[Rfam]
Background:
The record is a 77-nucleotide RNA from Eubacterium plexicaudatum, which matches "Group II catalytic intron D1-D4-1" in Rfam. The pairing is the family consensus, mapped onto this sequence.
RNA sequence: UAACCGCGAUUAAAAGAUUGCGCUGAACACACAAAAGUCAGCAGAGGUCAUAGUAGUCAAAGGAAUGGAUGAAGGAC
Numbered sequence: 001u002a003a004c005c006g007c008g009a010u011u012a013a014a015a016g017a018u019u020g021c022g023c024u025g026a027a028c029a030c031a032c033a034a035a036a037g038u039c040a041g042c043a044g045a046g047g048u049c050a051u052a053g054u055a056g057u058c059a060a061a062g063g064a065a066u067g068g069a070u071g072a073a074g075g076a077c
Base pairs, nucleotide, nucleotide: 001025002024005022006021007020008019009018010017011016038045039044047077048076049075056070057069058068060066